[Rfam]
RNA sequence: UACGUCUCACGUAACUGGCGAAAACCGCCUGCCGGCGGUGAAGGUGGAGAUCCACCGUGGAGCGUGAGAUGUCGUUUUGCCGUUCGCCUGGGCAGCCUCC
Numbered sequence: 001u002a003c004g005u006c007u008c009a010c011g012u013a014a015c016u017g018g019c020g021a022a023a024a025c026c027g028c029c030u031g032c033c034g035g036c037g038g039u040g041a042a043g044g045u046g047g048a049g050a051u052c053c054a055c056c057g058u059g060g061a062g063c064g065u066g067a068g069a070u071g072u073c074g075u076u077u078u079g080c081c082g083u084u085c086g087c088c089u090g091g092g093c094a095g096c097c098u099c100c
Stems, first nucleotide, its partner, number of pairs: 003071010015059001017088005044055004077095005